[Rfam]
RNA sequence: UCUUAAGAACAGGGGUUUCUUUCGGCCUCCAGCAGAUUUGAGAGUUGUAGGCCGGCGGAAACUACUUGCUUUUGAGG
Numbered sequence: 001u002c003u004u005a006a007g008a009a010c011a012g013g014g015g016u017u018u019c020u021u022u023c024g025g026c027c028u029c030c031a032g033c034a035g036a037u038u039u040g041a042g043a044g045u046u047g048u049a050g051g052c053c054g055g056c057g058g059a060a061a062c063u064a065c066u067u068g069c070u071u072u073u074g075a076g077g
Stems, first nucleotide, its partner, number of pairs: 005073004010068004014063007022055007030047003
RNA: mir-2796 microRNA precursor family